Shown here is a 135-nucleotide RNA from Aquarana catesbeiana, a member of the family "Small nucleolar RNA SNORA3/SNORA45 family".

[Rfam]
RNA sequence: AUCGAGACUAUAGAGUCACACCUCUGCACUCCUAGUGGCCUUGGUGUGCUAGAGUCCUCGAAGAGUAAUUGCUGAUCUUUAUUCACCGGUUGGUUCUCUAUUGUAGCUCAACCAGUCAACUGUACAGCAACAUCC
Numbered sequence: 001a002u003c004g005a006g007a008c009u010a011u012a013g014a015g016u017c018a019c020a021c022c023u024c025u026g027c028a029c030u031c032c033u034a035g036u037g038g039c040c041u042u043g044g045u046g047u048g049c050u051a052g053a054g055u056c057c058u059c060g061a062a063g064a065g066u067a068a069u070u071g072c073u074g075a076u077c078u079u080u081a082u083u084c085a086c087c088g089g090u091u092g093g094u095u096c097u098c099u100a101u102u103g104u105a106g107c108u109c110a111a112c113c114a115g116u117c118a119a120c121u122g123u124a125c126a127g128c129a130a131c132a133u134c135c
Base pairs, nucleotide, nucleotide: 002061003060004059005058006057007055008054009053014050015049017048018047019046020045021044022043026039027038072127073126074125077122080119085116086115088113089112091110092109093108096106097105

It is annotated as an H/ACA-box small nucleolar RNA. The family is grouped with related families in Rfam's "SNORA3 clan". NCBI's taxonomy places the organism under Eukaryota, Chordata, Vertebrata, Ranoidea, Aquarana. Rfam's curators write: The members of this family belong to the H/ACA class of snoRNAs which are thought to guide the sites of modification of uridines to pseudouridines. This family includes mouse snoMBI-28 and human homologues ACA3 (SNORA3) and ACA3-2 (SNORA45). The match comes from Rfam's covariance-model search (72 bits).